[Rfam]
Nucleotides: 078
Base pairs, nucleotide, nucleotide: 014064015063016062017061019059020058021057022056023055024054025053026052027051028050030049031048032047033046
Number, partner (000 for none) and nucleotide at each position: 001000a002000g003000g004000u005000g006000u007000c008000c009000u010000c011000a012000g013000c014064c015063u016062c017061u018000u019059u020058a021057c022056g023055g024054u025053g026052c027051u028050g029000c030049c031048u032047u033046g034000u035000g036000g037000c038000g039000u040000c041000u042000u043000g044000a045000u046033c047032a048031a049030g050028c051027a052026g053025c054024a055023u056022u057021g058020u059019a060000c061017a062016g063015g064014g065000c066000u067000a068000u069000g070000a071000g072000g073000a074000c075000a076000c077000a078000u
Shown here is a 78-nucleotide sequence from Merluccius polli, a member of the family "mir-103/107 microRNA precursor family". Rfam 15.1 lists 1,982 matches to the family in 645 species. From the family's description: This family consists of the mammalian microRNA (miRNA) precursors mir-103 and mir107. Animal miRNAs are transcribed as ~70nt precursors and subsequently processed by the Dicer enzyme to give a ~22nt product. In this case the mature sequence comes from the 3' arm of the precursor. A reference for the family is Mourelatos et al. (2002), "miRNPs: a novel class of ribonucleoproteins containing numerous microRNAs", Genes Dev. The family's consensus secondary structure was predicted with RNAalifold.